[Rfam]
RNA sequence: CAGCAUGUUUCCAAGGUCUGUGACUGGUUGUGGCCAUGGGAUCUCCAACCACAUGCCAGAGUAACUGGAGAGAUUUGGACAGCUCAGGCCAGCACAGUGCCUGUAGAUGCCACUCAGUUUUCUUGUAUAU
Numbered sequence: 001c002a003g004c005a006u007g008u009u010u011c012c013a014a015g016g017u018c019u020g021u022g023a024c025u026g027g028u029u030g031u032g033g034c035c036a037u038g039g040g041a042u043c044u045c046c047a048a049c050c051a052c053a054u055g056c057c058a059g060a061g062u063a064a065c066u067g068g069a070g071a072g073a074u075u076u077g078g079a080c081a082g083c084u085c086a087g088g089c090c091a092g093c094a095c096a097g098u099g100c101c102u103g104u105a106g107a108u109g110c111c112a113c114u115c116a117g118u119u120u121u122c123u124u125g126u127a128u129a130u
Base pairs, nucleotide, nucleotide: 011039012038016035018033019032020031021030022029067123068122069121070120071119072118082110083109085103086102087101088100
Record summary: The record is a 130-nucleotide RNA from Mesocricetus auratus, which matches "Small nucleolar RNA SNORA44" in Rfam. A reference for the family is Huttenhofer et al. (2001), "RNomics: an experimental approach that identifies 201 candidates for novel, small, non-messenger RNAs in mouse", EMBO J. Pairs were carried over by alignment from the consensus structure, which was predicted with PFOLD. About the family: ACA44 is a member of the H/ACA class of snoRNA that guide the sites of modification of uridines to pseudouridines. Rfam classes the family as an H/ACA-box small nucleolar RNA.